This 72-nucleotide sequence belongs to the Rfam family "S15-Halobacteria ribosomal protein leader". On this family, see Eckert and Weinberg, BMC Microbiol 2020: "Discovery of 20 novel ribosomal leader candidates in bacteria and archaea".

RNA sequence: ACGGGAACAGCACAGCUACAGAUCCGACGCGCCGGGGCCUCUUUCGCCCACGGCUUGGGAAUGUAGCAGUGC
Numbered sequence: 001a002c003g004g005g006a007a008c009a010g011c012a013c014a015g016c017u018a019c020a021g022a023u024c025c026g027a028c029g030c031g032c033c034g035g036g037g038c039c040u041c042u043u044u045c046g047c048c049c050a051c052g053g054c055u056u057g058g059g060a061a062u063g064u065a066g067c068a069g070u071g072c
Stems, first nucleotide, its partner, number of pairs: 010072004015067006024059002031054004035049004